A member of the RNA family "Mason-Pfizer monkey virus packaging signal" from Nannospalax galili, 277 nucleotides long. The family has 9 seed sequences and 2,921 matches in Rfam 15.1. The match comes from Rfam's covariance-model search (159 bits). The organism belongs to Nannospalax, within Eukaryota. From the family's description: This family represents a group of sequences that are related to the Mason-Pfizer monkey virus (MPMV) packaging signal. The packaging signal is located in the 5' UTR and is required for specific RNA encapsidation.
RNA sequence: UGGCGCCCAACGUGGGGCUUGGAUACUGAGGCAGGAGUGAGGGAGACUACGUGAAAAGGAACACGUUGGACAAAUUUUGAGACACAUCAGAGCCACUGUGGGAACCUUCCUCAGCUGAAACCAAAAGUAAGUGUAAACGUCUGAUCAUGGGGCAAGAAUUAAGCCAGCAUGAGCUUUAUGUUAGACAGUUAAAAGAGGCUUUAAAGACAUUGGGAGUAAAGGUUAAAACUACAGAUUUGUUUCACUUUUUUUGACUUUGUGAAAGAGACCUGUCCCU
Numbered sequence: 001u002g003g004c005g006c007c008c009a010a011c012g013u014g015g016g017g018c019u020u021g022g023a024u025a026c027u028g029a030g031g032c033a034g035g036a037g038u039g040a041g042g043g044a045g046a047c048u049a050c051g052u053g054a055a056a057a058g059g060a061a062c063a064c065g066u067u068g069g070a071c072a073a074a075u076u077u078u079g080a081g082a083c084a085c086a087u088c089a090g091a092g093c094c095a096c097u098g099u100g101g102g103a104a105c106c107u108u109c110c111u112c113a114g115c116u117g118a119a120a121c122c123a124a125a126a127g128u129a130a131g132u133g134u135a136a137a138c139g140u141c142u143g144a145u146c147a148u149g150g151g152g153c154a155a156g157a158a159u160u161a162a163g164c165c166a167g168c169a170u171g172a173g174c175u176u177u178a179u180g181u182u183a184g185a186c187a188g189u190u191a192a193a194a195g196a197g198g199c200u201u202u203a204a205a206g207a208c209a210u211u212g213g214g215a216g217u218a219a220a221g222g223u224u225a226a227a228a229c230u231a232c233a234g235a236u237u238u239g240u241u242u243c244a245c246u247u248u249u250u251u252u253g254a255c256u257u258u259g260u261g262a263a264a265g266a267g268a269c270c271u272g273u274c275c276c277u
Stems, first nucleotide, its partner, number of pairs: 006031002012026003036048003084128002087124001094117002097113002100110002134155001138152001140151004160203003163199003210253001212251005220238005262277001265274002
Dot-bracket structure: .....((....(((.........)))...))....(((.......)))...................................((.(......((.((.((.......)).))..))......)..)).....(...(.((((....)))))..)....((((((...............................))).)))......(.(((((...(((((.........)))))........))))).)........(..((......))..)